[Rfam]
Source information:
Shown here is a 471-nucleotide part of an RNA from uncultured bacterium HF0070_02E07, a member of the family "Bacterial large subunit ribosomal RNA". It is one of the family's seed sequences. For this family Rfam cites "Crystal structure of the ribosome at 5.5 A resolution" (Yusupov et al., Science, 2001).
RNA sequence: GUGUAAGGGCAUCCAAAGGAUACCUAGGUAGUUAGCAAAUAAAGGACGUAAUUUGAUGCGAUAAGCUAGACUUAUGACUACAAUCACCAAGUCUAGAUUUCCGAUUGGUAAACCAUCCUUAUUAGGAAUUAACAACUUAGUGAAGUGAAACAUCUCAGUAACUAAGAAAAAAAUCAACCGAGAUUCCGGUAGUAGUGGCGAGCGAACCCGGAUUUAGGCCUUAAAUAAUAUAUAUUAAUGAUGACAACAACUAUGGAAUUUAGUGACCAAAGUAGGUGAAAGUCCUUCCCAAUCAUUAAUAUUAUUGUUUUAUGAGUAGAACGGGACAUGUGAAAUCUUGUUUGAAUAUAGGAGAACCAUCUUCUAAGCCUAAAAAUGCUAAACUAACCGAUAGUGUACAAGUACCGUGAGGGAAAGGCGAAAAGUCCUUAGGAGGCGUUAAAUUUUCCAAUGAAAUUGGAUGCCUAAUAA
Numbered sequence: 001g002u003g004u005a006a007g008g009g010c011a012u013c014c015a016a017a018g019g020a021u022a023c024c025u026a027g028g029u030a031g032u033u034a035g036c037a038a039a040u041a042a043a044g045g046a047c048g049u050a051a052u053u054u055g056a057u058g059c060g061a062u063a064a065g066c067u068a069g070a071c072u073u074a075u076g077a078c079u080a081c082a083a084u085c086a087c088c089a090a091g092u093c094u095a096g097a098u099u100u101c102c103g104a105u106u107g108g109u110a111a112a113c114c115a116u117c118c119u120u121a122u123u124a125g126g127a128a129u130u131a132a133c134a135a136c137u138u139a140g141u142g143a144a145g146u147g148a149a150a151c152a153u154c155u156c157a158g159u160a161a162c163u164a165a166g167a168a169a170a171a172a173a174u175c176a177a178c179c180g181a182g183a184u185u186c187c188g189g190u191a192g193u194a195g196u197g198g199c200g201a202g203c204g205a206a207c208c209c210g211g212a213u214u215u216a217g218g219c220c221u222u223a224a225a226u227a228a229u230a231u232a233u234a235u236u237a238a239u240g241a242u243g244a245c246a247a248c249a250a251c252u253a254u255g256g257a258a259u260u261u262a263g264u265g266a267c268c269a270a271a272g273u274a275g276g277u278g279a280a281a282g283u284c285c286u287u288c289c290c291a292a293u294c295a296u297u298a299a300u301a302u303u304a305u306u307g308u309u310u311u312a313u314g315a316g317u318a319g320a321a322c323g324g325g326a327c328a329u330g331u332g333a334a335a336u337c338u339u340g341u342u343u344g345a346a347u348a349u350a351g352g353a354g355a356a357c358c359a360u361c362u363u364c365u366a367a368g369c370c371u372a373a374a375a376a377u378g379c380u381a382a383a384c385u386a387a388c389c390g391a392u393a394g395u396g397u398a399c400a401a402g403u404a405c406c407g408u409g410a411g412g413g414a415a416a417g418g419c420g421a422a423a424a425g426u427c428c429u430u431a432g433g434a435g436g437c438g439u440u441a442a443a444u445u446u447u448c449c450a451a452u453g454a455a456a457u458u459g460g461a462u463g464c465c466u467a468a469u470a471a
Stems, first nucleotide, its partner, number of pairs: 007466010023418002027389002029386005035380001036378002044102003047060003066096007075083001106115003116127004136166006147154002174181002184374001185212005195203002216371004224311001226307005234300008243288002248265001250264004268272001274286003319343008350365005405412002427436003